Shown here is a 104-nucleotide RNA from Robinsoniella sp. RHS, a member of the family "TPP riboswitch aptamer (THI element)". Vitamin B(1) in its active form thiamin pyrophosphate (TPP) is an essential coenzyme that is synthesised by coupling of pyrimidine and thiazole moieties in bacteria. The match comes from Rfam's covariance-model search (58 bits).

[Rfam]
RNA sequence: AUAGCUAUGCAGGGGAACUAAUAAUAGUUGAGAUUGAUAUGUAUAUAUCUAACCCUUUGAACCUGACAGUUAACACUGUGGUAGGGAGCAUUCGAUGAGUAAUA
Numbered sequence: 001a002u003a004g005c006u007a008u009g010c011a012g013g014g015g016a017a018c019u020a021a022u023a024a025u026a027g028u029u030g031a032g033a034u035u036g037a038u039a040u041g042u043a044u045a046u047a048u049c050u051a052a053c054c055c056u057u058u059g060a061a062c063c064u065g066a067c068a069g070u071u072a073a074c075a076c077u078g079u080g081g082u083a084g085g086g087a088g089c090a091u092u093c094g095a096u097g098a099g100u101a102a103u104a
Base pairs, nucleotide, nucleotide: 007091008090009089010088011056012055013054014053016050017028018027019026020025036049037048038047039046062085063084064083065082066079067078068077069076